[Rfam]
RNA sequence: ACACCGCCCGUGCGGUGUGCACGCUCCUCAAGGGGCCUGUGUGACGGGGGUGGUGCCGUGUCGGCGCAGCACCACCCCCGUGCC
Numbered sequence: 001a002c003a004c005c006g007c008c009c010g011u012g013c014g015g016u017g018u019g020c021a022c023g024c025u026c027c028u029c030a031a032g033g034g035g036c037c038u039g040u041g042u043g044a045c046g047g048g049g050g051u052g053g054u055g056c057c058g059u060g061u062c063g064g065c066g067c068a069g070c071a072c073c074a075c076c077c078c079c080g081u082g083c084c
Stems, first nucleotide, its partner, number of pairs: 001018007019042005025035003044081013058067003
Rfam assigns this 84-nucleotide sequence to the family "Streptomyces RNA 6106".
The base pairs follow the family's consensus structure.
On this family, see Vockenhuber et al., RNA Biol 2011: "Deep sequencing-based identification of small non-coding RNAs in Streptomyces coelicolor".
A search with the family's covariance model found it, with a score of 77 bits.
Identified by deep sequencing of transcriptome at the end of exponential growth phase. Appears smaller on northern blot than sequencing transcript. This indicates processing step. Streptomyces specific.